Shown here is a 72-nucleotide sequence from Cimex lectularius, a member of the family "mir-190 microRNA precursor family". For this family Rfam cites "MicroRNA discovery and profiling in human embryonic stem cells by deep sequencing of small RNA libraries" (Bar et al., Stem Cells, 2008). The family has 76 seed sequences and 1,667 matches in Rfam 15.1. The organism belongs to Cimex, within Eukaryota. Its Rfam clan is "mir-50 clan".
[Rfam]
RNA sequence: CUUGCUGCAAGAUAUGUUUGAUAUUCUUGGUUGUUCAGAAUCAACCGAGGAUCAAACAUAUUAUGCAGCGGC
Numbered sequence: 001c002u003u004g005c006u007g008c009a010a011g012a013u014a015u016g017u018u019u020g021a022u023a024u025u026c027u028u029g030g031u032u033g034u035u036c037a038g039a040a041u042c043a044a045c046c047g048a049g050g051a052u053c054a055a056a057c058a059u060a061u062u063a064u065g066c067a068g069c070g071g072c
Stems, first nucleotide, its partner, number of pairs: 005068005011062012024049002029046005